[Rfam]
RNA sequence: CGUACGAAAGGGCAAACUCAUUGAAAAGUGAGGACGCAAAACUAGAGGGGCUAAAGUCAUUUUGAUCAAGCCAGCCAGUUACCGAA
Numbered sequence: 001c002g003u004a005c006g007a008a009a010g011g012g013c014a015a016a017c018u019c020a021u022u023g024a025a026a027a028g029u030g031a032g033g034a035c036g037c038a039a040a041a042c043u044a045g046a047g048g049g050g051c052u053a054a055a056g057u058c059a060u061u062u063u064g065a066u067c068a069a070g071c072c073a074g075c076c077a078g079u080u081a082c083c084g085a086a
Stems, first nucleotide, its partner, number of pairs: 012037002017032006040080004047076002049072003056066004
RNA: c-di-GMP-I riboswitch aptamer
Organism: Salirhabdus euzebyi